[Rfam]
RNA sequence: CCUCCCGUGAUGAUUUGUCUCCGUGACUUUCGUUCUCCUGAGCUCGCUGAAGCCACUCGUUUCAAUCUGAGGAGG
Numbered sequence: 001c002c003u004c005c006c007g008u009g010a011u012g013a014u015u016u017g018u019c020u021c022c023g024u025g026a027c028u029u030u031c032g033u034u035c036u037c038c039u040g041a042g043c044u045c046g047c048u049g050a051a052g053c054c055a056c057u058c059g060u061u062u063c064a065a066u067c068u069g070a071g072g073a074g075g
Base pairs, nucleotide, nucleotide: 001075002074003073005071

A member of the RNA family "Small nucleolar RNA SNORD59" from Trogon melanurus, 75 nucleotides long. The match comes from Rfam's covariance-model search (61 bits). Its family is annotated with RNA processing and nucleolus in the Gene Ontology. The family's RNA type in Rfam is C/D-box small nucleolar RNA. The source organism's lineage runs through Eukaryota, Metazoa, Neognathae, Trogoniformes and Trogon. On this family, see Galardi et al., Mol Cell Biol 2002: "Purified box C/D snoRNPs are able to reproduce site-specific 2'-O-methylation of target RNA in vitro". The family is grouped with related families in Rfam's "SNORD59 clan".